[Rfam]
RNA sequence: GGGUGGUCCACAUGAGGGUGGGCCAGGACAGUCGCGAAGGUCGGGCCGCCUCG
Numbered sequence: 001g002g003g004u005g006g007u008c009c010a011c012a013u014g015a016g017g018g019u020g021g022g023c024c025a026g027g028a029c030a031g032u033c034g035c036g037a038a039g040g041u042c043g044g045g046c047c048g049c050c051u052c053g
Base pairs, nucleotide, nucleotide: 005024006023007022008021009020010019011018035053036052037051039050040049041048
A member of the RNA family "nhaA-I RNA" from Comamonas serinivorans, 53 nucleotides long. From the family's description: Acidobacteria, Alphaproteobacteria, Betaproteobacteria and Gammaproteobacteria, Verrucomicrobia, cand. division NC10. It is annotated as a riboswitch. A search with the family's covariance model found it, with a score of 41 bits.